[Rfam]
RNA sequence: UGAGUGCGUAAUUUGGAGACUCGUAUAAUGCCGGGGAUAUGGCCUGGCAGUCUCUACCGGGCAACCUUAAAUUGCCUGACUACGAGGUCGGUUUUUCAUUAU
Numbered sequence: 001u002g003a004g005u006g007c008g009u010a011a012u013u014u015g016g017a018g019a020c021u022c023g024u025a026u027a028a029u030g031c032c033g034g035g036g037a038u039a040u041g042g043c044c045u046g047g048c049a050g051u052c053u054c055u056a057c058c059g060g061g062c063a064a065c066c067u068u069a070a071a072u073u074g075c076c077u078g079a080c081u082a083c084g085a086g087g088u089c090g091g092u093u094u095u096u097c098a099u100u101a102u
Stems, first nucleotide, its partner, number of pairs: 018088001020086006029049007058078007